[Rfam]
RNA sequence: GCCUAGCUGGCUCAAUCAGUAGAGUACAUGACUCUUGAUCUUGAGGUUGUGAGUUCAAGUCCCAUGUUGUGCA
Number, nucleotide and partner (000 for none) at each position: 001g072002c071003c000004u069005a068006g067007c066008u000009g000010g025011c024012u023013c022014a000015a000016u000017c000018a000019g000020u000021a000022g013023a012024g011025u010026a000027c043028a042029u000030g040031a039032c000033u000034c000035u000036u000037g000038a000039u031040c030041u000042u028043g027044a000045g000046g000047u000048u000049g065050u064051g063052a000053g061054u000055u000056c000057a000058a000059g000060u000061c053062c000063c051064a050065u049066g007067u006068u005069g004070u000071g002072c001073a000

A member of the RNA family "tRNA" from Canis lupus, 73 nucleotides long. Pairs were carried over by alignment from the consensus structure, which is taken from published work. The source organism's lineage runs through Eukaryota, Opisthokonta, Craniata, Laurasiatheria and Canis lupus.